RNA sequence: ACUCUUUACGGAGAUGGCAUUCCUCCUUUAACCAUCGGCGCAAGCCGAUUGAUGAUGCCUACAGGUCC
Numbered sequence: 001a002c003u004c005u006u007u008a009c010g011g012a013g014a015u016g017g018c019a020u021u022c023c024u025c026c027u028u029u030a031a032c033c034a035u036c037g038g039c040g041c042a043a044g045c046c047g048a049u050u051g052a053u054g055a056u057g058c059c060u061a062c063a064g065g066u067c068c
Base pairs, nucleotide, nucleotide: 010026011025012024013023016059017058018057019056020055021054034049035048036047037046038045039044
RNA: Fluoride riboswitch aptamer (crcB RNA motif)
Organism: Pollutimonas bauzanensis